[Rfam]
A member of the RNA family "c-di-GMP-I riboswitch aptamer" from Delftia acidovorans, 96 nucleotides long. Rfam's curators write: GEMM was predicted in a large-scale screen for bacterial structured RNA regulatory elements. The family is grouped with related families in Rfam's "c-di-GMP_I riboswitch clan".

RNA sequence: UUUGCGCACCAGCACACCCGUACGAAAGGCGGGGUCGCAAAGCCUCCGGUCUACCCCCGCCCUUUGACGGGCGGGCAUGACAGCGGGGUUGCCAGG
Dot-bracket structure: ...........((...(((((.(....))))))...))..((((.((((((....(((((((......)))))))...)))..)))))))......